[Rfam]
RNA sequence: GCUUCCGUCCUCGUGAUCGUCUUCUCACCCUUCACGGCGGGCGGGAGAAGGAAGAGGGCCCCCUGUGCGGGCGUGACGCACAGGGGGCCCUC
Numbered sequence: 001g002c003u004u005c006c007g008u009c010c011u012c013g014u015g016a017u018c019g020u021c022u023u024c025u026c027a028c029c030c031u032u033c034a035c036g037g038c039g040g041g042c043g044g045g046a047g048a049a050g051g052a053a054g055a056g057g058g059c060c061c062c063c064u065g066u067g068c069g070g071g072c073g074u075g076a077c078g079c080a081c082a083g084g085g086g087g088c089c090c091u092c
Base pairs, nucleotide, nucleotide: 002047003046005044006043007042008041009040010039013035014034015033016032019029054092055091056090057089058088059087060086061085062084063083064082065081066080067079068078069077

Shown here is a 92-nucleotide sequence from Streptomyces albus, a member of the family "sodF sRNA". A reference for the family is Kim et al. (2014), "Inverse regulation of Fe- and Ni-containing SOD genes by a Fur family regulator Nur through small RNA processed from 3'UTR of the sodF mRNA", Nucleic Acids Res. Lineage of the source: Bacteria > Bacillati > Actinomycetota > Kitasatosporales > Streptomyces. The base pairs follow the family's consensus structure. The family's RNA type in Rfam is small RNA.